RNA sequence: ACCCUAUUUAAUAAAAUGGUUGAACCAAGUGAAGAAGAGUUAACCACUCUGCUUGGGCUACCUGAACAACAGCCAUACGGUUUGGCGGGAUACUACCAAAUCGUGGCCGCAAAAUCAGUAAUGAUUAGCGAUAAGGAGAAACUCCGAAUGUUAAGGGUAGGCGCUUGGUUAUCCGCUAACAAAAGCACGAUUCCUCACGGCAUCAUAAUAGAAGUCAAGCGUUAAAAGCGUAGACUGAAUCCUAGUUAGGGUUUAGCUGGUGACUGUAUCAAACCUAGGAAAGACCAAUAAGGUGCUAUUGUCGUUGAAACCUAGAAAUAGGCUAUAAGUGAGGUUUGCGGUAAAAGUAGCUUAAAGUGACAACAAGUUCUUGGUAUUAGAACAAAUAGAAAAUAUUUGAUUUAUUAUUGAAGAAUUUGCUGAAUGGUUUGAGUGAAAUUUGAGAGUAGACAAUCUCUCCGUUGGUAGUCGAAAGACAGGGUGAAGAAGUUAAAGGGUCGCUACCUUUGGCUCAGCCUUCAUCUUCAACGUAGCUGAAUAUGUUAGAAGGAUAAUACAAGUACGGCGAAGGUCGCAACGGUUUUAUUAAAUAGG
Numbered sequence: 001a002c003c004c005u006a007u008u009u010a011a012u013a014a015a016a017u018g019g020u021u022g023a024a025c026c027a028a029g030u031g032a033a034g035a036a037g038a039g040u041u042a043a044c045c046a047c048u049c050u051g052c053u054u055g056g057g058c059u060a061c062c063u064g065a066a067c068a069a070c071a072g073c074c075a076u077a078c079g080g081u082u083u084g085g086c087g088g089g090a091u092a093c094u095a096c097c098a099a100a101u102c103g104u105g106g107c108c109g110c111a112a113a114a115u116c117a118g119u120a121a122u123g124a125u126u127a128g129c130g131a132u133a134a135g136g137a138g139a140a141a142c143u144c145c146g147a148a149u150g151u152u153a154a155g156g157g158u159a160g161g162c163g164c165u166u167g168g169u170u171a172u173c174c175g176c177u178a179a180c181a182a183a184a185g186c187a188c189g190a191u192u193c194c195u196c197a198c199g200g201c202a203u204c205a206u207a208a209u210a211g212a213a214g215u216c217a218a219g220c221g222u223u224a225a226a227a228g229c230g231u232a233g234a235c236u237g238a239a240u241c242c243u244a245g246u247u248a249g250g251g252u253u254u255a256g257c258u259g260g261u262g263a264c265u266g267u268a269u270c271a272a273a274c275c276u277a278g279g280a281a282a283g284a285c286c287a288a289u290a291a292g293g294u295g296c297u298a299u300u301g302u303c304g305u306u307g308a309a310a311c312c313u314a315g316a317a318a319u320a321g322g323c324u325a326u327a328a329g330u331g332a333g334g335u336u337u338g339c340g341g342u343a344a345a346a347g348u349a350g351c352u353u354a355a356a357g358u359g360a361c362a363a364c365a366a367g368u369u370c371u372u373g374g375u376a377u378u379a380g381a382a383c384a385a386a387u388a389g390a391a392a393a394u395a396u397u398u399g400a401u402u403u404a405u406u407a408u409u410g411a412a413g414a415a416u417u418u419g420c421u422g423a424a425u426g427g428u429u430u431g432a433g434u435g436a437a438a439u440u441u442g443a444g445a446g447u448a449g450a451c452a453a454u455c456u457c458u459c460c461g462u463u464g465g466u467a468g469u470c471g472a473a474a475g476a477c478a479g480g481g482u483g484a485a486g487a488a489g490u491u492a493a494a495g496g497g498u499c500g501c502u503a504c505c506u507u508u509g510g511c512u513c514a515g516c517c518u519u520c521a522u523c524u525u526c527a528a529c530g531u532a533g534c535u536g537a538a539u540a541u542g543u544u545a546g547a548a549g550g551a552u553a554a555u556a557c558a559a560g561u562a563c564g565g566c567g568a569a570g571g572u573c574g575c576a577a578c579g580g581u582u583u584u585a586u587u588a589a590a591u592a593g594g
Stems, first nucleotide, its partner, number of pairs: 008590002011587001014584003021577001025056005036050005058160006072107004080101006087094002108130003113126005135145004168575001170554001174550001179544001184541001185535001188340002193334006199297006219231004240280006250270003254266003258287004300362005309324001311322003344439001350434006419516004444458001446456001461529003464477001469475001479526001480524002485519002489512001491509006563574004

ROOL RNA: a 594-nucleotide RNA sequence. Firmicutes, Fusobacteria (1 example), Tenericutes (1 example).